[Rfam]
Record summary:
Rfam assigns this 86-nucleotide RNA from Oceanobacillus bengalensis to the family "c-di-GMP-I-GGC riboswitch aptamer". The family's consensus secondary structure is taken from published work. Lineage of the source: Bacteria > Bacillati > Bacillota > Bacillaceae > Oceanobacillus.
RNA sequence: UCAGAAAAAGGCAAACCUAUUGAGAAAUAGGGACGCAAAGCUACAGAUCAUAGGUUGAGGAACCUAAGAUGGCUGUGCUGCCUGAA
Numbered sequence: 001u002c003a004g005a006a007a008a009a010g011g012c013a014a015a016c017c018u019a020u021u022g023a024g025a026a027a028u029a030g031g032g033a034c035g036c037a038a039a040g041c042u043a044c045a046g047a048u049c050a051u052a053g054g055u056u057g058a059g060g061a062a063c064c065u066a067a068g069a070u071g072g073c074u075g076u077g078c079u080g081c082c083u084g085a086a
Stems, first nucleotide, its partner, number of pairs: 001086001003083002011036002016031006034072001039079003044075003047070003